[Rfam]
RNA: Small nucleolar RNA U3
Organism: Ornithorhynchus anatinus
RNA sequence: AAGACUAUACUUUCAGGGAUCAUUUCUAUAGUAUGUCACUAGAGAAGUGAGAAUGAAAGUGUGAAGAGACGAAAGCCACGAGGAGGAGUUUGAGUGUUCUCUCCUGAGCGCGAAGCGGGCUCGCGGUGCUGCUUUGAGCAGCUGCCGUUUGCCAUUGAUGACCGUUCCUCCUUCUCUUCGGGGAAGGUUGGAGGGAGAGAACACAAGCUGAGUGGU
Numbered sequence: 001a002a003g004a005c006u007a008u009a010c011u012u013u014c015a016g017g018g019a020u021c022a023u024u025u026c027u028a029u030a031g032u033a034u035g036u037c038a039c040u041a042g043a044g045a046a047g048u049g050a051g052a053a054u055g056a057a058a059g060u061g062u063g064a065a066g067a068g069a070c071g072a073a074a075g076c077c078a079c080g081a082g083g084a085g086g087a088g089u090u091u092g093a094g095u096g097u098u099c100u101c102u103c104c105u106g107a108g109c110g111c112g113a114a115g116c117g118g119g120c121u122c123g124c125g126g127u128g129c130u131g132c133u134u135u136g137a138g139c140a141g142c143u144g145c146c147g148u149u150u151g152c153c154a155u156u157g158a159u160g161a162c163c164g165u166u167c168c169u170c171c172u173u174c175u176c177u178u179c180g181g182g183g184a185a186g187g188u189u190g191g192a193g194g195g196a197g198a199g200a201a202c203a204c205a206a207g208c209u210g211a212g213u214g215g216u
Stems, first nucleotide, its partner, number of pairs: 002040002006035006015027004053062002075216005094204012108165003118153003124147004128142005168190001170187007